[Rfam]
RNA sequence: UGAGAUGGAAUCAAUGUUUGGACAUGCAAUUUUAUGUUGAUUCCAUCUCAUG
Numbered sequence: 001u002g003a004g005a006u007g008g009a010a011u012c013a014a015u016g017u018u019u020g021g022a023c024a025u026g027c028a029a030u031u032u033u034a035u036g037u038u039g040a041u042u043c044c045a046u047c048u049c050a051u052g
Base pairs, nucleotide, nucleotide: 001050002049003048004047005046006045007044008043009042010041011040012039013038014037015036016035017034018029019028020027